[Rfam]
RNA sequence: UAACAGGUGAAAGUCCUGUAGUGGUAAAGGUAGGGCAGCCACUUAGUCAGUAACCAGCGUAUGAAGCAAUUUAUGCGUUGAAGCGUUACGGAAUGCUCUGAAAAGAGCAGACAAACUGACGGGUCGUAACAUGA
Number, nucleotide and partner (000 for none) at each position: 001u000002a000003a000004c000005a000006g000007g000008u000009g000010a000011a000012a000013g000014u000015c000016c000017u000018g000019u000020a043021g042022u041023g040024g039025u000026a000027a000028a000029g000030g000031u000032a000033g000034g000035g000036c000037a000038g000039c024040c023041a022042c021043u020044u000045a000046g000047u000048c000049a000050g089051u088052a087053a086054c085055c080056a079057g078058c077059g076060u075061a000062u000063g000064a071065a070066g000067c000068a000069a000070u065071u064072u000073a000074u000075g060076c059077g058078u057079u056080g055081a000082a000083g000084c000085g054086u053087u052088a051089c050090g000091g000092a000093a000094u109095g108096c107097u106098c105099u104100g000101a000102a000103a000104a099105g098106a097107g096108c095109a094110g000111a127112c126113a000114a000115a000116c000117u000118g000119a000120c000121g000122g000123g000124u000125c000126g112127u111128a000129a000130c000131a000132u000133g000134a000
The record is a 134-nucleotide RNA sequence from Heyndrickxia coagulans, which matches "Group II catalytic intron D1-D4-4" in Rfam. The family has 90 seed sequences and 840 matches in Rfam 15.1. Rfam links the family to the GO term Group II intron splicing. Rfam describes the family as follows. Group II introns are found in rRNA, tRNA and mRNA of organelles in fungi, plants and protists, and also in mRNA in bacteria. Taxonomically the source falls in Heyndrickxia coagulans (Bacteria, Bacillati, Bacillota, Heyndrickxia).